Annotation: The family of this 166-nucleotide RNA from Buceros rhinoceros is "Small Cajal body specific RNA 16". Rfam describes the family as follows. scaRNAs are a specific class of small nuclear RNAs which localise to the Cajal bodies and guide the modification of RNA polymerase II transcribed spliceosomal RNAs U1, U2, U4, U5 and U12. ACA47 belongs to the H/ACA box class of guide RNAs as it has the predicted hairpin-hinge-hairpin-tail structure, the conserved H/ACA-box motifs and is found associated with GAR1. The base pairs follow the family's consensus structure, which was predicted with RNAfold.
RNA sequence: AGGCUGCCGGGUGGCAGGGCCGGCAGGCUCUGCCUUGUAUCCACCAGCCUCACCUGCGCCCGAGAUCAACUCCCCGGCGGGCUCCGCGCUGGGUCCAUCCUGUGCAGUAACAGGUGUGAGCAUCCAUGCAGCGUUUUGAUGGUCAUGUAUGAUACUGCAUACAAUA
Dot-bracket structure: .(((((..(.(((((((.(((....))).)))))....)))..).)))).......................(((((((.......))))))).......(((((((((.((....(((.((((...(......)..)))).)))....)).))))))))).....
Its family is annotated with nucleolus and RNA processing in the Gene Ontology. A search with the family's covariance model found it, with a score of 104 bits.